[Rfam]
Rfam assigns this 102-nucleotide RNA from Carnegiea gigantea to the family "MIR535 microRNA precursor family". Taxonomically the source falls in Carnegiea (Eukaryota, Viridiplantae, Gunneridae, Caryophyllales).
RNA sequence: AAGAUUGUCUGACAACGAGAGAGAGCACGCUUGUCAAAAUCUCAUGCAAGCGAAACACUCUAUGACUGGUACGAGCGUGCUCUUUCUCAUCGUCAUAUGAUC
Numbered sequence: 001a002a003g004a005u006u007g008u009c010u011g012a013c014a015a016c017g018a019g020a021g022a023g024a025g026c027a028c029g030c031u032u033g034u035c036a037a038a039a040u041c042u043c044a045u046g047c048a049a050g051c052g053a054a055a056c057a058c059u060c061u062a063u064g065a066c067u068g069g070u071a072c073g074a075g076c077g078u079g080c081u082c083u084u085u086c087u088c089a090u091c092g093u094c095a096u097a098u099g100a101u102c
Base pairs, nucleotide, nucleotide: 010095011094012093013092017088020085021084023082025080026079027078028077029076030075031074032073033072034071
Dot-bracket structure: .........((((...(..((.(.((((((((((....................................)))))))))).).))..)...)))).......

The literature on the family includes a 2010 paper in Nucleic Acids Res by Zeng et al., "Conservation and divergence of microRNAs and their functions in Euphorbiaceous plants".